[Rfam]
RNA sequence: GAAAGGUCGGGUAUUUAUCCGGCUGGAUGUACCGAAUGUGUAUAUCCCAUUUAGG
Numbered sequence: 001g002a003a004a005g006g007u008c009g010g011g012u013a014u015u016u017a018u019c020c021g022g023c024u025g026g027a028u029g030u031a032c033c034g035a036a037u038g039u040g041u042a043u044a045u046c047c048c049a050u051u052u053a054g055g
Base pairs, nucleotide, nucleotide: 005024006023007022008021009020010019011018012017025047026046027045028044029043030042031041
The family of this 55-nucleotide RNA sequence is "S4-Clostridia ribosomal protein leader". The sequence is in the family's curated seed alignment. The family is grouped with related families in Rfam's "Ribosomal Protein S4 Leader clan".